[Rfam]
RNA sequence: AUCCAGAGCGCAGUGAUGCUAUUAUUCCAAGCACGUAACUGACCUUACUGUGCGGAGACUAACCCUUCUGAGUGCUCUGGAU
Dot-bracket structure: ((((((.((((............................................................)))).))))))